[Rfam]
RNA sequence: GCCGUGAAAGCCCUCGAUUCUCUGUCUGUCGUAGACGGCCUACGCACGGGAACGACGGACAUUUUUUCAACUCCUUGAUACUCCCUCUUUACCUCGCUCUCUUAAGUUGACGCCUAUGCGCGUAAGGGGGAGUCCAGGCGCGCUUUUAGCGCGCAGCGCAUAUAGUGCGCUGGGUCCCCGCCUGCGCGGGGACGAC
Numbered sequence: 001g002c003c004g005u006g007a008a009a010g011c012c013c014u015c016g017a018u019u020c021u022c023u024g025u026c027u028g029u030c031g032u033a034g035a036c037g038g039c040c041u042a043c044g045c046a047c048g049g050g051a052a053c054g055a056c057g058g059a060c061a062u063u064u065u066u067u068c069a070a071c072u073c074c075u076u077g078a079u080a081c082u083c084c085c086u087c088u089u090u091a092c093c094u095c096g097c098u099c100u101c102u103u104a105a106g107u108u109g110a111c112g113c114c115u116a117u118g119c120g121c122g123u124a125a126g127g128g129g130g131a132g133u134c135c136a137g138g139c140g141c142g143c144u145u146u147u148a149g150c151g152c153g154c155a156g157c158g159c160a161u162a163u164a165g166u167g168c169g170c171u172g173g174g175u176c177c178c179c180g181c182c183u184g185c186g187c188g189g190g191g192a193c194g195a196c
Stems, first nucleotide, its partner, number of pairs: 015109004023037006048102002050099002053096003057093002111194002114191001117188004123184002126181001128178004133174002138159003
Source information
Coxiella burnetii sRNA 3: a 196-nucleotide sequence from Coxiella burnetii. From the family's description: In bacteria small regulatory RNAs are activated during stress and virulence conditions. Coxiella burnetii small RNAs (CbSRs 1, 11, 12, and 14) are encoded within intergenic region IGR. CbSRs 2, 3, 4 and 9 are located antisense to identified ORFs. Lineage of the source: Bacteria > Pseudomonadati > Gammaproteobacteria > Legionellales > Coxiella burnetii. A reference for the family is Warrier et al. (2014), "Identification of novel small RNAs and characterization of the 6S RNA of Coxiella burnetii", PLoS One.